[Rfam]
The family of this 171-nucleotide RNA sequence from Cronobacter sakazakii is "sok antitoxin (CssrC)". It scores 102 bits against the family's covariance model. By type it is an antitoxin RNA. Also identified in Shigella as CssrC. The organism belongs to Cronobacter sakazakii, within Bacteria.

Nucleotides: 171
Stems, first nucleotide, its partner, number of pairs: 002072002005070004013062013074099001077096001079093001081091003100137005106130001108128006141166002145162001
Number, partner (000 for none) and nucleotide at each position: 001000c002072g003071g004000c005070g006069c007068u008067u009000g010000a011000g012000g013062c014061u015060u016059u017058u018057u019056g020055c021054c022053u023052c024051a025050u026000g027000c028000u029000g030000u031000c032000g033000g034000c035000a036000g037000a038000a039000a040000u041000g042000c043000c044000g045000u046000g047000a048000u049000g050025g051024u052023g053022a054021g055020g056019c057018a058017g059016a060015a061014a062013g063000a064000a065000g066000a067008a068007a069006g070005c071003c072002c073000c074099g075000a076000a077096g078000g079093u080000c081091a082090u083089u084000u085000a086000u087000u088000c089083a090082a091081u092000u093079a094000a095000c096077c097000a098000a099074c100137g101136a102135g103134g104133c105000c106130c107000c108128c109127u110126g111125a112124u113123g114000c115000a116000u117000c118000a119000a120000c121000a122000c123113c124112a125111u126110c127109a128108g129000c130106g131000u132000a133104g134103c135102c136101u137100c138000u139000u140000a141166c142165c143000c144000g145162c146000c147000g148000a149000a150000a151000g152000g153000c154000a155000a156000g157000g158000a159000g160000a161000a162145g163000a164000a165142g166141g167000c168000c169000a170000u171000g